[Rfam]
RNA sequence: CCGUGCUAGACGGGGCGGUAGCGGUGCCUUGUAACCCGCAAUCCGCUAUAGCGGGGUCGAAGCCUGCUUGAGGGUUUGGCCUGUGAGGCCUGCCCCCUGUAAGUGGCGAGGAUGGCUGGGUCCUGCGCAACAAGAGCUCAUGAACCCCGUCAGGUCCGGAAGGAAGCAGCGGUAAGUGAUGCUUCUUGUGUGCCGCAGGGUCGCCUGGUCAGAGUUAACUGCAGGGGUAACGCUUGGAGGUCAAAUUCGAAGGCAGGUGCACGG
Numbered sequence: 001c002c003g004u005g006c007u008a009g010a011c012g013g014g015g016c017g018g019u020a021g022c023g024g025u026g027c028c029u030u031g032u033a034a035c036c037c038g039c040a041a042u043c044c045g046c047u048a049u050a051g052c053g054g055g056g057u058c059g060a061a062g063c064c065u066g067c068u069u070g071a072g073g074g075u076u077u078g079g080c081c082u083g084u085g086a087g088g089c090c091u092g093c094c095c096c097c098u099g100u101a102a103g104u105g106g107c108g109a110g111g112a113u114g115g116c117u118g119g120g121u122c123c124u125g126c127g128c129a130a131c132a133a134g135a136g137c138u139c140a141u142g143a144a145c146c147c148c149g150u151c152a153g154g155u156c157c158g159g160a161a162g163g164a165a166g167c168a169g170c171g172g173u174a175a176g177u178g179a180u181g182c183u184u185c186u187u188g189u190g191u192g193c194c195g196c197a198g199g200g201u202c203g204c205c206u207g208g209u210c211a212g213a214g215u216u217a218a219c220u221g222c223a224g225g226g227g228u229a230a231c232g233c234u235u236g237g238a239g240g241u242c243a244a245a246u247u248c249g250a251a252g253g254c255a256g257g258u259g260c261a262c263g264g
Base pairs, nucleotide, nucleotide: 001264002263003262004261005260006259009058010057011056012030013029014028015027016026017025019023035055036054037053038052039051063257064256065255066254067253068252069251072248073247074246075245076244078242079241080240081239082238084236085235086234087233091229092228095226096225097224098223099222100221103219104218105216106215107214113211114210115209116208117207118206119205120204121203122199123198124197125196126195127194128190129189131188132187133186134185135184138179139178140177141176147172148171149170150169155164156163157162
Dot-bracket structure: ((((((..(((((((((.(...).))))))....(((((...........))))))))....(((((((..(((((.(((((.((((...((..((((((..(((((.....(((((((((((((((((.(((((..((((.....((((....(((....)))....))))...))))....)))))))...))))))...)))))))))..))).)).)))))).))...)))).))))).)))))..))))))).))))))
This 264-nucleotide RNA from Calderihabitans maritimus belongs to the Rfam family "Bacterial large signal recognition particle RNA". A reference for the family is Rosenblad et al. (2003), "SRPDB: Signal Recognition Particle Database", Nucleic Acids Res. About the family: The signal recognition particle (SRP) is a universally conserved ribonucleoprotein involved in the co-translational targeting of proteins to membranes. Taxonomically the source falls in Calderihabitans (Bacteria, Clostridia, Neomoorellales, Calderihabitantaceae). The match comes from Rfam's covariance-model search (223 bits). Clan: SRP clan.